[Rfam]
RNA sequence: GCGCAGCACAUGGGAGAACCGCCCCCGACGCCUUGCGUGGGGAACCGGUGCCGAAGGAGCAACCGCCCCGGAAACUCUCAGGCCAAAGGGACCGUGUGCGGGAC
Number, nucleotide and partner (000 for none) at each position: 001g000002c000003g000004c000005a000006g099007c098008a097009c096010a095011u094012g093013g092014g000015a000016g000017a000018a000019c048020c047021g046022c000023c000024c000025c000026c000027g000028a000029c000030g000031c000032c000033u000034u000035g000036c000037g000038u000039g000040g000041g000042g000043a000044a000045c000046c021047g020048g019049u000050g083051c082052c081053g079054a078055a000056g000057g077058a076059g075060c000061a000062a000063c071064c070065g000066c000067c000068c000069c000070g064071g063072a000073a000074a000075c059076u058077c057078u054079c053080a000081g052082g051083c050084c000085a000086a000087a000088g000089g000090g000091a000092c013093c012094g011095u010096g009097u008098g007099c006100g000101g000102g000103a000104c000
About this RNA:
Rfam assigns this 104-nucleotide RNA from Tritonibacter horizontis to the family "Glycine riboswitch aptamer". A search with the family's covariance model found it, with a score of 50 bits. Its Rfam clan is "Glycine riboswitch clan".